[Rfam]
RNA: Iron response element I
RNA sequence: AAGUUUCUUGCUUCAGCAGUGCUUGGACGGAACCU
Numbered sequence: 001a002a003g004u005u006u007c008u009u010g011c012u013u014c015a016g017c018a019g020u021g022c023u024u025g026g027a028c029g030g031a032a033c034c035u
Base pairs, nucleotide, nucleotide: 002035003034005032006031007030008029010028012027013026014025015024016023017021